[Rfam]
RNA sequence: AUUGGGAAAUGAUGACAGCUUAAUUGCUGGAUAGUAUCUGAGCAAAGCUUUGAAGAUUUUUUUUUUUCCUUUUGCACGUCAGUCUGAUUCCAAC
Numbered sequence: 001a002u003u004g005g006g007a008a009a010u011g012a013u014g015a016c017a018g019c020u021u022a023a024u025u026g027c028u029g030g031a032u033a034g035u036a037u038c039u040g041a042g043c044a045a046a047g048c049u050u051u052g053a054a055g056a057u058u059u060u061u062u063u064u065u066u067u068c069c070u071u072u073u074g075c076a077c078g079u080c081a082g083u084c085u086g087a088u089u090c091c092a093a094c
Base pairs, nucleotide, nucleotide: 002093003092004091005090006089007088
RNA: Small nucleolar RNA Z122
Organism: Gossypium aridum